[Rfam]
RNA sequence: AGUAACCACUGGGGGUGCUGAAAAGCUGAGAGGGACGAAUGUCUUAACCCCGUCACCUGAUCUGGAUAAUACCAGCGUAGGGAAGUGGUGCGAGACAAUU
Dot-bracket structure: .....(((((((((..(((....)))......((((....))))...))))....((((..((((......))))..))))..)))))............
A member of the RNA family "TPP riboswitch aptamer (THI element)" from Salisediminibacterium beveridgei, 100 nucleotides long.
Vitamin B(1) in its active form thiamin pyrophosphate (TPP) is an essential coenzyme that is synthesised by coupling of pyrimidine and thiazole moieties in bacteria.
Its family is annotated with thiamine pyrophosphate binding in the Gene Ontology.
Pairs were carried over by alignment from the consensus structure, which is taken from published work.